[Rfam]
RNA sequence: AGCACCAUAUUUAAACUUGUGGGAGGAAAUAUUCCCCAUUCUUGGUUACGCUGUAGUGCAAAAUAAUUCUGGCUCUUUCUGUUGCACAGCUGACUUUGUCCCAUUCAGCUGUUGCUCUAUAGAGUUAAGGAACGUAA
Numbered sequence: 001a002g003c004a005c006c007a008u009a010u011u012u013a014a015a016c017u018u019g020u021g022g023g024a025g026g027a028a029a030u031a032u033u034c035c036c037c038a039u040u041c042u043u044g045g046u047u048a049c050g051c052u053g054u055a056g057u058g059c060a061a062a063a064u065a066a067u068u069c070u071g072g073c074u075c076u077u078u079c080u081g082u083u084g085c086a087c088a089g090c091u092g093a094c095u096u097u098g099u100c101c102c103a104u105u106c107a108g109c110u111g112u113u114g115c116u117c118u119a120u121a122g123a124g125u126u127a128a129g130g131a132a133c134g135u136a137a
Base pairs, nucleotide, nucleotide: 002059003058004057005056007054008053009052014047015046016045017044021041022040023039025037026036067132068131069130070128071126072125073124074123075122076121080119081118084115085114086113087111088110089109090108092106093105
Dot-bracket structure: .((((.(((....((((...(((.((.........)).)))..))))....))).)))).......((((((((((...((..(((((((.((...........)).)))).)))..)).)))))).).))).....

The family of this 137-nucleotide RNA sequence from Suricata suricatta is "Small nucleolar RNA SNORA46". Rfam's curators write: ACA46 is a member of the H/ACA class of snoRNA that guide the sites of modification of uridines to pseudouridines. A search with the family's covariance model found it, with a score of 117 bits.